Source information: abiF RNA: a 37-nucleotide RNA sequence from Thiopseudomonas denitrificans. Pairs were carried over by alignment from the consensus structure, which is taken from published work. By type it is a small RNA. The organism belongs to Thiopseudomonas, within Bacteria. Actinobacteria, Bacteroidetes, Clostridia, Proteobacteria, one Clostridia phage.

RNA sequence: CCCGCCACGCCUCUCAACGAAGCGCACCCCGGCGGGU
Numbered sequence: 001c002c003c004g005c006c007a008c009g010c011c012u013c014u015c016a017a018c019g020a021a022g023c024g025c026a027c028c029c030c031g032g033c034g035g036g037u
Base pairs, nucleotide, nucleotide: 001036002035003034004033005032006031008024009023010022